This 380-nucleotide RNA sequence from Streptococcus pantholopis belongs to the Rfam family "Bacterial RNase P class B".
NCBI's taxonomy places the organism under Bacteria, Bacillati, Lactobacillales, Streptococcaceae, Streptococcus.
About the family: Ribonuclease P (RNase P) is a ubiquitous endoribonuclease, found in archaea, bacteria and eukarya as well as chloroplasts and mitochondria.
Gene Ontology terms of the family: dimeric ribonuclease P complex, tRNA processing and ribonuclease P activity.
A reference for the family is Frank and Pace (1998), "Ribonuclease P: unity and diversity in a tRNA processing ribozyme", Annu Rev Biochem.
A search with the family's covariance model found it, with a score of 324 bits.
Rfam classes the family as a ribozyme.

RNA sequence: AUUUUUGGAUAAUCGCAUGAGAGAGUCAGUCUUUCAUGAGGAAAGUCCAUGCUAGCACCGGCUGUGAUGUCGGUAGUGUUUGUGCUGGGUGAAAAAAUAAGCCCAGGGACGUGUUAAAACACGUUACGGCGGAUGAAACGGCUAAGUCCUUUUAUUGAAGGAUAGGCGGGAUUAAUCCUGAAAGUGCCACAGUGACGAAGCUUUUAUGGAAACAUAGGAGGUGGAACGCGGUAAACCCCUCAAGCUAGCAACCCAAACUUUGGUAGGGGCACGGGGCAGGCGGAAAGCGAACGCACUGUCCUGACUGGAAACAGUAGACAGAUGAUUAUCGAAGGAAGCAGGAGCCUAGCUGUUUCCGGAACAAAACAUGGCUUAUAGAA
Dot-bracket structure: ...(((((((((((.((((((...........))))))....[[[.[[[[[(((((((((((......)))))).....(((.(((((((..........))))))(((((((......)))))).)((.((((....(.((...(((((((....)))))))..)).).....)))).....(((((............((((((((....)))))))).........)))..))))).))))))))...(((...........)))...(((((((..................)))))))((((....))))........)))))))...((((((((........)))))))).........]]]]]]]].).)))